[Rfam]
RNA sequence: AUGCAGCACCGUGCACUCCGCCUCCUCCGUGUCGUCCGCACCCACCCAACGCACACUACGUUGUGUUGGCC
Numbered sequence: 001a002u003g004c005a006g007c008a009c010c011g012u013g014c015a016c017u018c019c020g021c022c023u024c025c026u027c028c029g030u031g032u033c034g035u036c037c038g039c040a041c042c043c044a045c046c047c048a049a050c051g052c053a054c055a056c057u058a059c060g061u062u063g064u065g066u067u068g069g070c071c
Base pairs, nucleotide, nucleotide: 002015003014004013005012019034020033022031024029046069047068048067049066050065051064052063
Dot-bracket structure: .((((......))))...((.(.(....).).))...........(((((((..........)))))))..